[Rfam]
RNA: int-alpA RNA
Nucleotides: 067
Stems, first nucleotide, its partner, number of pairs: 001053008011021002027043005035066002038063001
Number, partner (000 for none) and nucleotide at each position: 001053g002052c003051u004050a005049a006048g007047u008046c009000u010000a011021g012020g013000u014000u015000g016000a017000u018000c019000c020012c021011c022000g023000a024000a025000a026000a027043u028042c029041g030040a031039g032000u033000a034000c035066c036065c037000a038063a039031u040030u041029c042028g043027a044000u045000u046008g047007g048006c049005u050004u051003a052002g053001c054000a055000g056000u057000u058000u059000u060000u061000g062000u063038u064000g065036g066035g067000a